[Rfam]
RNA sequence: GCCGCGCUAGGUUGCACUAGCUUAUAACUCAUGUGAGGGCACUAAGUUGGUCGGACUGCAGUUCGGCCCACUCGGUAGGGUUGAUGUGGUGGUGCAUCUCGUUGGCCUGCCCGGUCCAAGUUGUGAGUUAGGCCAUGUGACUCUAGCAAAGGCUUGUGUCACGUGGUUCGUAGAGAGGGGAGCACCACGUGAGGCUGGUUUCACAGAGCAGCGUAAACCUCCCGCUCAUGACAGUGGAAGGAUUACGAGCCACUGGCGCACCCUCAGCCCAUAUUGCCCAGCGGGCCAUCCUUGGUUGGACAACCAUCUUU
Numbered sequence: 001g002c003c004g005c006g007c008u009a010g011g012u013u014g015c016a017c018u019a020g021c022u023u024a025u026a027a028c029u030c031a032u033g034u035g036a037g038g039g040c041a042c043u044a045a046g047u048u049g050g051u052c053g054g055a056c057u058g059c060a061g062u063u064c065g066g067c068c069c070a071c072u073c074g075g076u077a078g079g080g081u082u083g084a085u086g087u088g089g090u091g092g093u094g095c096a097u098c099u100c101g102u103u104g105g106c107c108u109g110c111c112c113g114g115u116c117c118a119a120g121u122u123g124u125g126a127g128u129u130a131g132g133c134c135a136u137g138u139g140a141c142u143c144u145a146g147c148a149a150a151g152g153c154u155u156g157u158g159u160c161a162c163g164u165g166g167u168u169c170g171u172a173g174a175g176a177g178g179g180g181a182g183c184a185c186c187a188c189g190u191g192a193g194g195c196u197g198g199u200u201u202c203a204c205a206g207a208g209c210a211g212c213g214u215a216a217a218c219c220u221c222c223c224g225c226u227c228a229u230g231a232c233a234g235u236g237g238a239a240g241g242a243u244u245a246c247g248a249g250c251c252a253c254u255g256g257c258g259c260a261c262c263c264u265c266a267g268c269c270c271a272u273a274u275u276g277c278c279c280a281g282c283g284g285g286c287c288a289u290c291c292u293u294g295g296u297u298g299g300a301c302a303a304c305c306a307u308c309u310u311u
Stems, first nucleotide, its partner, number of pairs: 001040003004023001006021005028037003044310003048306004053301001056298001059294002061290001063288001065286001068284002071281002074278004079269006086262001088261001090260002103252004108247002111241002115238004120232009131168011143156001145154003177222004187214004195206003
The record is a 311-nucleotide RNA sequence from Trema andersonii, which matches "Plant signal recognition particle RNA" in Rfam. NCBI's taxonomy places the organism under Eukaryota, Tracheophyta, Spermatophyta, fabids, Trema. Clan: SRP clan. The base pairs follow the family's consensus structure, which is taken from published work.